[Rfam]
This 119-nucleotide RNA sequence from Alkalibacterium sp. 20 belongs to the Rfam family "trpB ncRNA motif". About the family: trpB ncRNA motif was reported as a strong cis regulatory motif candidate, with potential to be a cis regulatory riboswitch type, it have been identified in Firmicutes and Fusobacteria. The motif have been recognised upstream of an uncharacterized ABC transporter with strong homology to amino acid transporters. It is also occasionally located upstream of trpB gene, that codes for a tryptophan synthase. On this family, see Narunsky et al., Nucleic Acids Res 2024: "The discovery of novel noncoding RNAs in 50 bacterial genomes".
RNA sequence: UUCAUGGAUACAACGUUUAGAUCAUUCUAAAUUUUGUAUCUAUGCUGGCUUAUUUUUGAUGCUUUAUUUGAUCUUAUGCCACUUAGAUGACAACACCAUCUGUGUGGCUUUUUGCUAUU
Numbered sequence: 001u002u003c004a005u006g007g008a009u010a011c012a013a014c015g016u017u018u019a020g021a022u023c024a025u026u027c028u029a030a031a032u033u034u035u036g037u038a039u040c041u042a043u044g045c046u047g048g049c050u051u052a053u054u055u056u057u058g059a060u061g062c063u064u065u066a067u068u069u070g071a072u073c074u075u076a077u078g079c080c081a082c083u084u085a086g087a088u089g090a091c092a093a094c095a096c097c098a099u100c101u102g103u104g105u106g107g108c109u110u111u112u113u114g115c116u117a118u119u
Base pairs, nucleotide, nucleotide: 003044004043005042006041007040008039009038010037011036015032016031017030018029019028020027078108079107080106081105082104084102085101086100087099088098

The organism belongs to Alkalibacterium, within Bacteria.